The record is a 100-nucleotide RNA from Streptomyces purpureus, which matches "ZMP/ZTP riboswitch aptamer (pfl RNA motif)" in Rfam. A search with the family's covariance model found it, with a score of 48 bits.
[Rfam]
RNA sequence: GGCGCGGGCCGUGACUGGCGCGUGAGGUGGAGUACCACCGGGGAGCGGCCCGACGGGCUCCGACCGGACUCCGCCACUGCCGUGCGCCUGGGCGAUGACG
Numbered sequence: 001g002g003c004g005c006g007g008g009c010c011g012u013g014a015c016u017g018g019c020g021c022g023u024g025a026g027g028u029g030g031a032g033u034a035c036c037a038c039c040g041g042g043g044a045g046c047g048g049c050c051c052g053a054c055g056g057g058c059u060c061c062g063a064c065c066g067g068a069c070u071c072c073g074c075c076a077c078u079g080c081c082g083u084g085c086g087c088c089u090g091g092g093c094g095a096u097g098a099c100g
Stems, first nucleotide, its partner, number of pairs: 005052008015042002017088005027038004078094004
The base pairs follow the family's consensus structure, which is taken from published work.